RNA sequence: UGACGGGGACCCGCACAAGCGGUGGAGCAUGUGGUUUAAUUCGACGCAACGCGAAGAACCUUACCCGGUCUUGAGAUCCUCCUGAAUACUGAGUAAUGUCAGUAGUCCUUCGGGACAGGAGAGACAGGUGGUGCAUGGUUGUCGUCAGCUCGUGUCGUGAGAUGUUGGGUUAAGUCCCGCAACGAGCGCAACCCCUAUUUUUAGUAGCCAGCGGUUCGGCCGGGCACUCUAAAGAGACUGCCGAGGAUAACUCGGAGGAAGGCGGGGAUGACGUCAAAUCAUCAUGCCCCUUAUGACCGGGGCUACACACGUGCUACAAUGGCAGUUACAGAGGGAAGCGAAGAUGUGAAUCGGAGCAAAUCUCAGAAAGGCUGCCUCAGUUCGGAUUGUAGUCUGCAACUCGACUACAUGAAGCUGGAAUCGCUAGUAAUCGCAAAUCAGAAUGUUGCGGUGAAUACGUUCCCGGGUCUUGUACACACCGCCCGUCACACCAUGGGAGUCGGAAAUGCCCGAAGUCAGUGGCCUAACCGCAAGGGAGGAGCUGCCGAAGGCAGGUCUGGUGACUGGGGUGAAGUCGUAACAAGG
Number, nucleotide and partner (000 for none) at each position: 001u476002g475003a473004c472005g471006g000007g470008g469009a468010c467011c466012c465013g464014c000015a460016c459017a000018a000019g424020c423021g422022g421023u420024g317025g000026a315027g314028c313029a312030u311031g310032u309033g308034g306035u305036u000037u000038a000039a000040u055041u054042c053043g052044a000045c000046g000047c000048a000049a000050c000051g000052c043053g042054a041055a040056g000057a000058a000059c000060c000061u000062u000063a000064c301065c300066c299067g298068g297069u296070c295071u000072u000073g000074a000075g000076a000077u124078c123079c121080u120081c119082c118083u117084g000085a000086a000087u104088a103089c102090u101091g100092a099093g000094u000095a000096a000097u000098g000099u092100c091101a090102g089103u088104a087105g116106u115107c114108c113109u000110u000111c000112g000113g108114g107115a106116c105117a083118g082119g081120a080121g079122a000123g078124a077125c000126a000127g290128g289129u000130g288131g287132u286133g285134c000135a000136u284137g283138g279139u278140u277141g275142u000143c273144g272145u000146c000147a000148g187149c186150u185151c184152g183153u182154g163155u162156c161157g000158u000159g000160a000161g156162a155163u154164g000165u000166u179167g178168g177169g176170u000171u000172a000173a000174g000175u000176c169177c168178c167179g166180c000181a000182a153183c152184g151185a150186g149187c148188g000189c000190a000191a000192c000193c267194c266195c265196u264197a000198u235199u234200u233201u232202u231203a230204g229205u000206a000207g000208c224209c223210a000211g000212c222213g221214g220215u000216u000217c000218g000219g000220c214221c213222g212223g209224g208225c000226a000227c000228u000229c204230u203231a202232a201233a200234g199235a198236g000237a000238c258239u257240g000241c255242c254243g253244a252245g251246g000247a000248u000249a000250a000251c245252u244253c243254g242255g241256a000257g239258g238259a000260a000261g000262g000263c000264g196265g195266g194267g193268a000269u000270g000271a000272c144273g143274u000275c141276a000277a140278a139279u138280c000281a000282u000283c137284a136285u133286g132287c131288c130289c128290c127291u000292u000293a000294u000295g070296a069297c068298c067299g066300g065301g064302g000303c000304u000305a035306c034307a000308c033309a032310c031311g030312u029313g028314c027315u026316a000317c024318a000319a000320u000321g376322g375323c374324a373325g372326u371327u370328a000329c000330a000331g000332a000333g364334g363335g362336a000337a000338g357339c356340g000341a000342a000343g352344a351345u350346g000347u000348g000349a000350a345351u344352c343353g000354g000355a000356g339357c338358a000359a000360a000361u000362c335363u334364c333365a000366g000367a000368a000369a000370g327371g326372c325373u324374g323375c322376c321377u000378c000379a000380g000381u000382u000383c414384g000385g000386a000387u000388u409389g408390u407391a406392g405393u404394c403395u000396g000397c000398a000399a000400c000401u000402c000403g394404a393405c392406u391407a390408c389409a388410u000411g000412a000413a000414g383415c000416u000417g000418g000419a000420a023421u022422c021423g020424c019425u000426a000427g000428u000429a000430a452431u451432c450433g449434c448435a447436a446437a000438u000439c000440a000441g000442a000443a000444u000445g000446u436447u435448g434449c433450g432451g431452u430453g000454a000455a000456u000457a000458c000459g016460u015461u000462c000463c000464c013465g012466g011467g010468u009469c008470u007471u005472g004473u003474a000475c002476a001477c000478a000479c584480c000481g581482c000483c000484c577485g576486u000487c000488a000489c571490a570491c569492c568493a000494u566495g565496g564497g000498a000499g561500u560501c559502g558503g557504a556505a000506a000507u553508g552509c551510c550511c000512g000513a000514a000515g546516u000517c544518a543519g542520u541521g000522g000523c539524c538525u537526a000527a000528c535529c534530g000531c000532a000533a000534g529535g528536g000537a525538g524539g523540a000541g520542c519543u518544g517545c000546c515547g000548a000549a000550g510551g509552c508553a507554g000555g000556u504557c503558u502559g501560g500561u499562g000563a000564c496565u495566g494567g000568g492569g491570u490571g489572a000573a000574g000575u000576c485577g484578u000579a000580a000581c481582a000583a000584g479585g000